[Rfam]
RNA: Group II catalytic intron D1-D4-1
RNA sequence: UAACUAGCCUAGUGAUAGGUUAUUGAACAGUCAGAAGUCAGCAGAGGUCAUAGUACAAUACGGGUCGCUCCCGUUUUGGAAGGAC
Numbered sequence: 001u002a003a004c005u006a007g008c009c010u011a012g013u014g015a016u017a018g019g020u021u022a023u024u025g026a027a028c029a030g031u032c033a034g035a036a037g038u039c040a041g042c043a044g045a046g047g048u049c050a051u052a053g054u055a056c057a058a059u060a061c062g063g064g065u066c067g068c069u070c071c072c073g074u075u076u077u078g079g080a081a082g083g084a085c
Base pairs, nucleotide, nucleotide: 001025002024005022006021007020008019009018010017011016038045039044047085048084049083056078057077058076060074061073